The record is a 96-nucleotide RNA from Phyllostomus discolor, which matches "Z30 small nucleolar RNA" in Rfam. A search with the family's covariance model found it, with a score of 88 bits.
RNA sequence: AUGCCACGAUGAGUGAAGUAGAGUCUGACCUGGUAUUGCCAUUCUUUGGUGUUGCCUUUGACUAGGGUAUGAUCGCUUCAUCUUCUCUCUGAGAUG
Numbered sequence: 001a002u003g004c005c006a007c008g009a010u011g012a013g014u015g016a017a018g019u020a021g022a023g024u025c026u027g028a029c030c031u032g033g034u035a036u037u038g039c040c041a042u043u044c045u046u047u048g049g050u051g052u053u054g055c056c057u058u059u060g061a062c063u064a065g066g067g068u069a070u071g072a073u074c075g076c077u078u079c080a081u082c083u084u085c086u087c088u089c090u091g092a093g094a095u096g
Stems, first nucleotide, its partner, number of pairs: 001095001004093001038056001040054002
Notes
For this family Rfam cites "Purified box C/D snoRNPs are able to reproduce site-specific 2'-O-methylation of target RNA in vitro" (Galardi et al., Mol Cell Biol, 2002). Its family is annotated with nucleolus and RNA processing in the Gene Ontology.